A member of the RNA family "gut-2 RNA", 48 nucleotides long.
[Rfam]
RNA sequence: AACCGCUGUACGCUUGGGUACGGCGAAGGGCCGCUUGGGGCCGACGGG
Numbered sequence: 001a002a003c004c005g006c007u008g009u010a011c012g013c014u015u016g017g018g019u020a021c022g023g024c025g026a027a028g029g030g031c032c033g034c035u036u037g038g039g040g041c042c043g044a045c046g047g048g
Stems, first nucleotide, its partner, number of pairs: 004025008029042004